[Rfam]
SAM riboswitch aptamer (S box leader): a 106-nucleotide RNA sequence from Nonlabens spongiae. The source organism's lineage runs through Bacteria, Pseudomonadati, Bacteroidota, Flavobacteriales and Nonlabens.

RNA sequence: GAGUUAUAAAGAAAGGUGGAGAGAUUAGACUCUAUGAUACCUUGGCAACCCUGAUCUAUCAGAAGGUGCCUCAUUCUACCGUGUUUAAAAUGCGGCCAGAUAACGA
Numbered sequence: 001g002a003g004u005u006a007u008a009a010a011g012a013a014a015g016g017u018g019g020a021g022a023g024a025u026u027a028g029a030c031u032c033u034a035u036g037a038u039a040c041c042u043u044g045g046c047a048a049c050c051c052u053g054a055u056c057u058a059u060c061a062g063a064a065g066g067u068g069c070c071u072c073a074u075u076c077u078a079c080c081g082u083g084u085u086u087a088a089a090a091u092g093c094g095g096c097c098a099g100a101u102a103a104c105g106a
Base pairs, nucleotide, nucleotide: 003104004103005102006101007100013043014042015041016040017039021032022031023030026078027077028076029075044070045069046068047067049066050065051062052061053060054059074098079095080094081093082092083091084090
Dot-bracket structure: ..(((((.....(((((...(((..[[[[)))......)))))((((.((((((....))))..))))))...(]]]]((((((.....))))))..).)))))..